[Rfam]
RNA: HDV ribozyme from F. prausnitzii
RNA sequence: GCUGCUCAAAACUUCACACACCUCUUCGUGGUGAGCAGCAGGCAACGAUCUAUGGAUUGGCGAAGAUGUGAAG
Number, nucleotide and partner (000 for none) at each position: 001g039002c038003u037004g036005c035006u034007c033008a000009a000010a000011a000012c000013u000014u000015c000016a000017c000018a000019c000020a032021c031022c030023u000024c000025u000026u000027c000028g000029u000030g022031g021032u020033g007034a006035g005036c004037a003038g002039c001040a000041g000042g000043c000044a000045a000046c059047g058048a057049u056050c055051u000052a000053u000054g000055g050056a049057u048058u047059g046060g000061c000062g000063a000064a000065g000066a000067u000068g000069u000070g000071a000072a000073g000